About this RNA:
A member of the RNA family "Glycine riboswitch aptamer" from Niveispirillum lacus, 87 nucleotides long. The pairing is the family consensus, mapped onto this sequence.
[Rfam]
Nucleotides: 087
Stems, first nucleotide, its partner, number of pairs: 006082002009079005020032004034067003037063002041061003047055002
Number, partner (000 for none) and nucleotide at each position: 001000c002000a003000g004000a005000a006082g007081c008000a009079c010078a011077u012076g013075g014000g015000a016000g017000a018000g019000a020032c021031c022030g023029g024000c025000c026000u027000u028000g029023c030022c031021g032020g033000c034067g035066c036065c037063g038062a039000a040000g041061g042060a043059g044000c045000a046000a047055c048054c049000g050000c051000c052000c053000c054048g055047g056000a057000a058000a059043c060042u061041c062038u063037c064000a065036g066035g067034c068000a069000a070000a071000a072000g073000g074000a075013c076012c077011a078010u079009g080000g081007g082006c083000u084000c085000a086000c087000g